[Rfam]
Description: The family of this 87-nucleotide sequence from Gossypium raimondii is "MIR7486 microRNA precursor family". The family's consensus secondary structure was predicted with RNAalifold. It scores 73 bits against the family's covariance model. Lineage of the source: Eukaryota > Tracheophyta > Euphyllophyta > Spermatophyta > Gossypium. Its family is annotated with miRNA-mediated post-transcriptional gene silencing and RISC complex in the Gene Ontology.
RNA sequence: CACGUCAACGCGCUUUGCUAACGUGACAACAAAUUGCGUCAUCGAGGGAGCGAUUUGUUGCCACGUCAGCAAAGUACGCUGACGUGG
Numbered sequence: 001c002a003c004g005u006c007a008a009c010g011c012g013c014u015u016u017g018c019u020a021a022c023g024u025g026a027c028a029a030c031a032a033a034u035u036g037c038g039u040c041a042u043c044g045a046g047g048g049a050g051c052g053a054u055u056u057g058u059u060g061c062c063a064c065g066u067c068a069g070c071a072a073a074g075u076a077c078g079c080u081g082a083c084g085u086g087g
Stems, first nucleotide, its partner, number of pairs: 001086007009078002012075008021066001023064003027060011040047001